[Rfam]
RNA sequence: GUAAGGACGACCUUGCACGUUCGAUUCAUCGGGGACGGCCCCA
Numbered sequence: 001g002u003a004a005g006g007a008c009g010a011c012c013u014u015g016c017a018c019g020u021u022c023g024a025u026u027c028a029u030c031g032g033g034g035a036c037g038g039c040c041c042c043a
Stems, first nucleotide, its partner, number of pairs: 001016006031042004
Dot-bracket structure: ((((((....))))))..............((((....)))).

This 43-nucleotide RNA sequence from Paraburkholderia sp. BL10I2N1 belongs to the Rfam family "Guanidine-II riboswitch aptamer (mini-ykkC)". NCBI's taxonomy places the organism under Bacteria, Pseudomonadati, Pseudomonadota, Burkholderiales, Paraburkholderia. Its family is annotated with regulation of gene expression in the Gene Ontology. It scores 38 bits against the family's covariance model. The base pairs follow the family's consensus structure, which is taken from published work.